[Rfam]
The record is a 69-nucleotide RNA from Populus alba, which matches "Plastid-clpP 5UTR RNA" in Rfam. For this family Rfam cites "Retrograde signaling in plants: A critical review focusing on the GUN pathway and beyond" (Richter et al., Plant Commun, 2023). By type it is a cis-regulatory element. Plastid clpP is a non-coding RNA (ncRNA) recognised in plastids. It was found in the prime untranslated region (5UTR) of a protease complex subunit (clpP) in plastids, suggesting a posible cis-regulatory function. Lineage of the source: Eukaryota > Streptophytina > Mesangiospermae > Malpighiales > Populus.
RNA sequence: ACUUUUGCAGACAGACACAGAGAGAAGCAGAUCUAUCCUAUACCAGAUAAAUACCAAUAUGCAAUUGGA
Numbered sequence: 001a002c003u004u005u006u007g008c009a010g011a012c013a014g015a016c017a018c019a020g021a022g023a024g025a026a027g028c029a030g031a032u033c034u035a036u037c038c039u040a041u042a043c044c045a046g047a048u049a050a051a052u053a054c055c056a057a058u059a060u061g062c063a064a065u066u067g068g069a
Base pairs, nucleotide, nucleotide: 003022004021006019007018043068044067045066051060052059053058